Shown here is a 68-nucleotide RNA sequence from Sphenodon punctatus, a member of the family "mir-302 microRNA precursor family".
[Rfam]
RNA sequence: CUUCUACUUUAACCUGGAAGUACUUGCUGGAUGUUGAAAAAGUAAGUGCUUCCUUGUUUUAGUUGUGG
Numbered sequence: 001c002u003u004c005u006a007c008u009u010u011a012a013c014c015u016g017g018a019a020g021u022a023c024u025u026g027c028u029g030g031a032u033g034u035u036g037a038a039a040a041a042g043u044a045a046g047u048g049c050u051u052c053c054u055u056g057u058u059u060u061a062g063u064u065g066u067g068g
Base pairs, nucleotide, nucleotide: 001068002067006063007062008061011058012057013056016053017052018051019050020049021048022047023046024045025044026043027042028041
The source organism's lineage runs through Eukaryota, Opisthokonta, Eumetazoa, Chordata and Sphenodon. It scores 67 bits against the family's covariance model.